[Rfam]
RNA sequence: AGAGGUCACAAGUUCAAGGCCAAAGUUGAAGUGCUCAUGGCACAGCCCUGUUCGAUUCCAAUGAACCUGUGAAUUCUGCU
Numbered sequence: 001a002g003a004g005g006u007c008a009c010a011a012g013u014u015c016a017a018g019g020c021c022a023a024a025g026u027u028g029a030a031g032u033g034c035u036c037a038u039g040g041c042a043c044a045g046c047c048c049u050g051u052u053c054g055a056u057u058c059c060a061a062u063g064a065a066c067c068u069g070u071g072a073a074u075u076c077u078g079c080u
Base pairs, nucleotide, nucleotide: 018047019046020045024080025079026078028076029075030074031043032042033041052069054067056065057064058063
RNA: Mammalian CPEB3 ribozyme